[Rfam]
The record is a 380-nucleotide sequence from Simkania negevensis, which matches "transfer-messenger RNA" in Rfam. Rfam links the family to the GO term RNA catabolic process. It scores 144 bits against the family's covariance model. The literature on the family includes a 1996 paper in RNA by Williams and Bartel, "Phylogenetic analysis of tmRNA secondary structure". The family's consensus secondary structure is taken from published work.
RNA sequence: GGGGGUGUACUGGUUUCGACUUGGAAAUAAAGUACCGGUGGCAUGCAGAGGAUUCGGCUGGCCUCUUAAAAAAGCCGAGACCAAUAAUUGUCGAUACUACAGAAGACUUUUAUUUAGAAGCUGCUUAAGACCUAACCCGUCUAUCUAGUAGCCGAUAGCCUCGGACUGGACCAAGGGUCUGGGGGUUCUAUCGCAGGAUUCUUGGUAUGAACACGCAUCCUCUCGAUCUCAAGAGCGUGUGUUCGAGAUUAACAAGAGAUGUGUCAGCCCCUAGUGGGGUGCCUUACAGCAAGGCUGGCACUAUACAUGAGGCACUAAGCAUGUAGGCAUUGCUAUGGAGUUUACUAAGGACGAGAGUUCGAUUCUCUCCACCUCCAGUU
Numbered sequence: 001g002g003g004g005g006u007g008u009a010c011u012g013g014u015u016u017c018g019a020c021u022u023g024g025a026a027a028u029a030a031a032g033u034a035c036c037g038g039u040g041g042c043a044u045g046c047a048g049a050g051g052a053u054u055c056g057g058c059u060g061g062c063c064u065c066u067u068a069a070a071a072a073a074g075c076c077g078a079g080a081c082c083a084a085u086a087a088u089u090g091u092c093g094a095u096a097c098u099a100c101a102g103a104a105g106a107c108u109u110u111u112a113u114u115u116a117g118a119a120g121c122u123g124c125u126u127a128a129g130a131c132c133u134a135a136c137c138c139g140u141c142u143a144u145c146u147a148g149u150a151g152c153c154g155a156u157a158g159c160c161u162c163g164g165a166c167u168g169g170a171c172c173a174a175g176g177g178u179c180u181g182g183g184g185g186u187u188c189u190a191u192c193g194c195a196g197g198a199u200u201c202u203u204g205g206u207a208u209g210a211a212c213a214c215g216c217a218u219c220c221u222c223u224c225g226a227u228c229u230c231a232a233g234a235g236c237g238u239g240u241g242u243u244c245g246a247g248a249u250u251a252a253c254a255a256g257a258g259a260u261g262u263g264u265c266a267g268c269c270c271c272u273a274g275u276g277g278g279g280u281g282c283c284u285u286a287c288a289g290c291a292a293g294g295c296u297g298g299c300a301c302u303a304u305a306c307a308u309g310a311g312g313c314a315c316u317a318a319g320c321a322u323g324u325a326g327g328c329a330u331u332g333c334u335a336u337g338g339a340g341u342u343u344a345c346u347a348a349g350g351a352c353g354a355g356a357g358u359u360c361g362a363u364u365c366u367c368u369c370c371a372c373c374u375c376c377a378g379u380u
Stems, first nucleotide, its partner, number of pairs: 001376007020349005026343002032336003036332005042323005047066005053079007153193006159184008170206006209244008227257003261301009274290002281315001284312002287309001353369005
Notes:
Bacterial tmRNA, also known as 10Sa RNA or SsrA, is named for its dual tRNA and mRNA-like properties. Its role is to liberate the mRNA from a stalled ribosome. To accomplish this part of the tmRNA is used as a reading frame that ends in a translation stop signal.